[Rfam]
RNA sequence: AAAACGUAAAACAAUGGAAGCCCUGCCUCUCUUCCAUCCUUACAGCUCCGAGGCUGCGCCGUUGUGAAUUCGUUUUUCGCCAUAAGA
Numbered sequence: 001a002a003a004a005c006g007u008a009a010a011a012c013a014a015u016g017g018a019a020g021c022c023c024u025g026c027c028u029c030u031c032u033u034c035c036a037u038c039c040u041u042a043c044a045g046c047u048c049c050g051a052g053g054c055u056g057c058g059c060c061g062u063u064g065u066g067a068a069u070u071c072g073u074u075u076u077u078c079g080c081c082a083u084a085a086g087a
Stems, first nucleotide, its partner, number of pairs: 035066002040061001041058001043056005

Notes: The record is an 87-nucleotide RNA from Thermaerobacillus caldiproteolyticus, which matches "BsrC" in Rfam. Lineage of the source: Bacteria > Bacillota > Caryophanales > Anoxybacillaceae > Thermaerobacillus. By type it is a small RNA. The 301 nucleotide sequence from Kouji Nakamura has been trimmed to a highly conserved ~85 nucleotide long core to form this family. Pairs were carried over by alignment from the consensus structure, which was predicted with CMfinder.